Shown here is a 108-nucleotide RNA from Sinobaca qinghaiensis, a member of the family "TPP riboswitch aptamer (THI element)". The family's consensus secondary structure is taken from published work. A search with the family's covariance model found it, with a score of 80 bits.
[Rfam]
RNA sequence: UGUUACCACUAGGGGUGCCUUUUAAAAGGGCUGAGAUUGAAGUGAUACUUCGGGACUCUUUGAACCUGAUCUGGAUAUACCAGCGGAGGGAAGUGGCUUGUCCUGCUU
Numbered sequence: 001u002g003u004u005a006c007c008a009c010u011a012g013g014g015g016u017g018c019c020u021u022u023u024a025a026a027a028g029g030g031c032u033g034a035g036a037u038u039g040a041a042g043u044g045a046u047a048c049u050u051c052g053g054g055a056c057u058c059u060u061u062g063a064a065c066c067u068g069a070u071c072u073g074g075a076u077a078u079a080c081c082a083g084c085g086g087a088g089g090g091a092a093g094u095g096g097c098u099u100g101u102c103c104u105g106c107u108u
Stems, first nucleotide, its partner, number of pairs: 006096005011059004016053001017031005038052005065089003071083004
Dot-bracket structure: .....(((((((((.((((((.....)))))......(((((.....))))))..)))).....(((...((((.....))))...)))..)))))............